[Rfam]
RNA sequence: CGCACUGCAUGGUAUCUGCCCUCAGCAGCUCAUUCCUGCUGGGUGUUCAAAAGACAGUGCAAUAGAAACUCAGUAUCUGGCAUCGUGGGUUCUCUUGGCUUCAUGCAUAGAUUUAGCUUAAAUGUAAGUA
Numbered sequence: 001c002g003c004a005c006u007g008c009a010u011g012g013u014a015u016c017u018g019c020c021c022u023c024a025g026c027a028g029c030u031c032a033u034u035c036c037u038g039c040u041g042g043g044u045g046u047u048c049a050a051a052a053g054a055c056a057g058u059g060c061a062a063u064a065g066a067a068a069c070u071c072a073g074u075a076u077c078u079g080g081c082a083u084c085g086u087g088g089g090u091u092c093u094c095u096u097g098g099c100u101u102c103a104u105g106c107a108u109a110g111a112u113u114u115a116g117c118u119u120a121a122a123u124g125u126a127a128g129u130a
Stems, first nucleotide, its partner, number of pairs: 002060006015053001017051001018046002021043008063130002068125002070121001072119002080106004
RNA: Small nucleolar RNA SNORA8
Organism: Odobenus rosmarus